The record is a 63-nucleotide RNA from Mytilus coruscus, which matches "Selenocysteine insertion sequence 1" in Rfam. The incorporation of selenocysteine into a protein sequence is directed by an in-frame UGA codon (usually a stop codon) within the coding region of the mRNA. Selenoprotein mRNAs contain a conserved secondary structure in the 3' UTR that is required for the distinction of UGA stop from UGA selenocysteine. The selenocysteine insertion sequence (SECIS) is around 60 nt in length and adopts a hairpin structure which is sufficiently well-defined and conserved to act as a computational screen for selenoprotein genes. The organism belongs to Mytilus, within Eukaryota. A search with the family's covariance model found it, with a score of 37 bits.
[Rfam]
RNA sequence: UAUAUUUUAUGAUGGUAUGAUCCUAAACCCCUAACGGGAGGGAUUGUACUUGAUAUUCAUAUG
Numbered sequence: 001u002a003u004a005u006u007u008u009a010u011g012a013u014g015g016u017a018u019g020a021u022c023c024u025a026a027a028c029c030c031c032u033a034a035c036g037g038g039a040g041g042g043a044u045u046g047u048a049c050u051u052g053a054u055a056u057u058c059a060u061a062u063g
Stems, first nucleotide, its partner, number of pairs: 001061003014050010029038003